Shown here is a 189-nucleotide RNA from Pseudomonas indica, a member of the family "Pseudomonas sRNA P27". Lineage of the source: Bacteria > Pseudomonadati > Pseudomonadales > Pseudomonadaceae > Pseudomonas. It scores 195 bits against the family's covariance model.
RNA sequence: CGGGUUUACUCCUGGAUGUUACCGUUUCGUCCAGCCUAAGCCGGACGGCGUUUUGGUGUCUGAUUCGGUACGAAUCGGGAGCACCAUCUGCGUAGGCUUUUCGUUUAAGGCUUGCACCGCCUACGGUCUUGGAUAGCCCCCGCCAGGCAGGGACCCCAAUUUUUCAAGCGUGCCGGGCAAACCCGGCAC
Numbered sequence: 001c002g003g004g005u006u007u008a009c010u011c012c013u014g015g016a017u018g019u020u021a022c023c024g025u026u027u028c029g030u031c032c033a034g035c036c037u038a039a040g041c042c043g044g045a046c047g048g049c050g051u052u053u054u055g056g057u058g059u060c061u062g063a064u065u066c067g068g069u070a071c072g073a074a075u076c077g078g079g080a081g082c083a084c085c086a087u088c089u090g091c092g093u094a095g096g097c098u099u100u101u102c103g104u105u106u107a108a109g110g111c112u113u114g115c116a117c118c119g120c121c122u123a124c125g126g127u128c129u130u131g132g133a134u135a136g137c138c139c140c141c142g143c144c145a146g147g148c149a150g151g152g153a154c155c156c157c158a159a160u161u162u163u164u165c166a167a168g169c170g171u172g173c174c175g176g177g178c179a180a181a182c183c184c185g186g187c188a189c
Stems, first nucleotide, its partner, number of pairs: 002156006011147004023050002028047005034041002054086006060078007090143003095138004103134010171188006
The base pairs follow the family's consensus structure, which was predicted with WAR.